[Rfam]
RNA sequence: GAGCAAUGAAGAAGAUUUUAAAGGAAUCUGAGGUUCCACUGAAGACAUAAGAUCCAACUCUGAGUUCACUGCUCUA
Numbered sequence: 001g002a003g004c005a006a007u008g009a010a011g012a013a014g015a016u017u018u019u020a021a022a023g024g025a026a027u028c029u030g031a032g033g034u035u036c037c038a039c040u041g042a043a044g045a046c047a048u049a050a051g052a053u054c055c056a057a058c059u060c061u062g063a064g065u066u067c068a069c070u071g072c073u074c075u076a
Base pairs, nucleotide, nucleotide: 001067002066003065004064
The record is a 76-nucleotide sequence from Tricholaema leucomelas, which matches "Small nucleolar RNA SNORD19" in Rfam. The family has 22 seed sequences and 1,431 matches in Rfam 15.1. The match comes from Rfam's covariance-model search (47 bits). The family is grouped with related families in Rfam's "SNORD19 clan". NCBI's taxonomy places the organism under Eukaryota, Sarcopterygii, Archelosauria, Dinosauria, Tricholaema lacrymosa. The family's RNA type in Rfam is C/D-box small nucleolar RNA. On this family, see Huttenhofer et al., EMBO J 2001: "RNomics: an experimental approach that identifies 201 candidates for novel, small, non-messenger RNAs in mouse".